RNA sequence: GAGUCCAACGCGCGCGCGAGUCAGAGGGCCUCCCCACGCGAAACCCCACGGCGCAAUGAAAGUGAAGGCCGGCGCCACGCCGGCCGAGGUGGGAUCCGCGCGCUCCCCGGAGCGGCGCGGCGCACCACCGGCCCGCCUCUGCCGCCCCGUCGGCGAGGUGGAGCAAGAGCGCGCGCGAUGGUACCCGAAAGAUGGUGAACUAUGCCCGGGCAGGGCGAAGCCAGAGGAAACUCUGGUGGAGGCCCGCAGCGGUCCUGACGUGCAAAUCGGUCGUCCGACCUGGGUAUAGGGGCGAAAGACUAAUCGAACCAUCUAGUAGCUGGUU
Numbered sequence: 001g002a003g004u005c006c007a008a009c010g011c012g013c014g015c016g017c018g019a020g021u022c023a024g025a026g027g028g029c030c031u032c033c034c035c036a037c038g039c040g041a042a043a044c045c046c047c048a049c050g051g052c053g054c055a056a057u058g059a060a061a062g063u064g065a066a067g068g069c070c071g072g073c074g075c076c077a078c079g080c081c082g083g084c085c086g087a088g089g090u091g092g093g094a095u096c097c098g099c100g101c102g103c104u105c106c107c108c109g110g111a112g113c114g115g116c117g118c119g120g121c122g123c124a125c126c127a128c129c130g131g132c133c134c135g136c137c138u139c140u141g142c143c144g145c146c147c148c149g150u151c152g153g154c155g156a157g158g159u160g161g162a163g164c165a166a167g168a169g170c171g172c173g174c175g176c177g178a179u180g181g182u183a184c185c186c187g188a189a190a191g192a193u194g195g196u197g198a199a200c201u202a203u204g205c206c207c208g209g210g211c212a213g214g215g216c217g218a219a220g221c222c223a224g225a226g227g228a229a230a231c232u233c234u235g236g237u238g239g240a241g242g243c244c245c246g247c248a249g250c251g252g253u254c255c256u257g258a259c260g261u262g263c264a265a266a267u268c269g270g271u272c273g274u275c276c277g278a279c280c281u282g283g284g285u286a287u288a289g290g291g292g293c294g295a296a297a298g299a300c301u302a303a304u305c306g307a308a309c310c311a312u313c314u315a316g317u318a319g320c321u322g323g324u325u
Stems, first nucleotide, its partner, number of pairs: 005181003009177009020052003026046003056063002088129005096120006131164002133161006143152002184323002187320001191313006200289011211277001213245004220237007249274004254270002257268002291301002
RNA: Eukaryotic large subunit ribosomal RNA, nucleotides 976 to 1300